RNA sequence: GAGGUAUGAGGAAAACAUCUAAACAGUCUGAAAUACCAUUGGAGACUGUAAGAUCCAACUCUGACCUCAGCCUAGGC
Numbered sequence: 001g002a003g004g005u006a007u008g009a010g011g012a013a014a015a016c017a018u019c020u021a022a023a024c025a026g027u028c029u030g031a032a033a034u035a036c037c038a039u040u041g042g043a044g045a046c047u048g049u050a051a052g053a054u055c056c057a058a059c060u061c062u063g064a065c066c067u068c069a070g071c072c073u074a075g076g077c
Base pairs, nucleotide, nucleotide: 001068002067003066004065
Notes
The record is a 77-nucleotide RNA sequence from Monodelphis domestica, which matches "Small nucleolar RNA SNORD19" in Rfam. Rfam links the family to the GO terms RNA processing and nucleolus. The organism belongs to Monodelphis, within Eukaryota. Clan: SNORD19 clan.